The record is a 129-nucleotide RNA from Treponema pedis, which matches "TD-1 RNA" in Rfam. Rfam 15.1 lists 147 matches to the family in 9 species. By type it is a cis-regulatory element. Its Rfam clan is "TD (Treponema denticola) motifs". A reference for the family is Weinberg et al. (2007), "Identification of 22 candidate structured RNAs in bacteria using the CMfinder comparative genomics pipeline", Nucleic Acids Res.
[Rfam]
RNA sequence: AAAACGCUGCCCGAGUUUGCCCUUCGGCAAACAUCGUAUUAUUGUGUGCCGUUUCUCACUUCGUUGCGAAACGGCGGAAAAUAAACAAUCCUCAAAAUCUGAAGGUUUUUCCGGUUGUUUAUUUUAUAU
Numbered sequence: 001a002a003a004a005c006g007c008u009g010c011c012c013g014a015g016u017u018u019g020c021c022c023u024u025c026g027g028c029a030a031a032c033a034u035c036g037u038a039u040u041a042u043u044g045u046g047u048g049c050c051g052u053u054u055c056u057c058a059c060u061u062c063g064u065u066g067c068g069a070a071a072c073g074g075c076g077g078a079a080a081a082u083a084a085a086c087a088a089u090c091c092u093c094a095a096a097a098u099c100u101g102a103a104g105g106u107u108u109u110u111c112c113g114g115u116u117g118u119u120u121a122u123u124u125u126a127u128a129u
Base pairs, nucleotide, nucleotide: 013035014034015032016031017030018029019028020027021026048075049074050073051072052071053070054069055068080123081122082121083120084119085118086117087116088115090114091113094109095108096107097106098105099104